Shown here is a 214-nucleotide sequence, a member of the family "PAGEV RNA". The sequence is in the family's curated seed alignment. The family's RNA type in Rfam is small RNA.

RNA sequence: UGGGGGUUGGAAUUACGAUGCUGUGGCCCCCGCUAGCGUUGAACUGGUGAUCACGGGGAUCUUCACACACCAGUAAGUAUAGCCGCGUCUGCUUAAAGUAGGCCGCCAGGGGUUACUCACCACUGCCCUGGUGCUCCGAAUUUUAUGGAGUAGACGCGCUGCAUGCUUUGAAGGGGUAAGCUGUUGUUGGACAGCUUAGAAAAUGCAGACGCCG
Numbered sequence: 001u002g003g004g005g006g007u008u009g010g011a012a013u014u015a016c017g018a019u020g021c022u023g024u025g026g027c028c029c030c031c032g033c034u035a036g037c038g039u040u041g042a043a044c045u046g047g048u049g050a051u052c053a054c055g056g057g058g059a060u061c062u063u064c065a066c067a068c069a070c071c072a073g074u075a076a077g078u079a080u081a082g083c084c085g086c087g088u089c090u091g092c093u094u095a096a097a098g099u100a101g102g103c104c105g106c107c108a109g110g111g112g113u114u115a116c117u118c119a120c121c122a123c124u125g126c127c128c129u130g131g132u133g134c135u136c137c138g139a140a141u142u143u144u145a146u147g148g149a150g151u152a153g154a155c156g157c158g159c160u161g162c163a164u165g166c167u168u169u170g171a172a173g174g175g176g177u178a179a180g181c182u183g184u185u186g187u188u189g190g191a192c193a194g195c196u197u198a199g200a201a202a203a204u205g206c207a208g209a210c211g212c213c214g
Base pairs, nucleotide, nucleotide: 001032002031003030004029005028006027007026043074044073045072046071047070048069061173062172063171064170065169084158085157086156087155088154089153090152091151092150093149159208160207161206162205163204164203177198178197179196180195181194182193183192
Dot-bracket structure: (((((((..................)))))))..........((((((............[[[[[...)))))).........((((((((((.......................................................))))))))))((((((....]]]]]...(((((((........)))))))....))))))......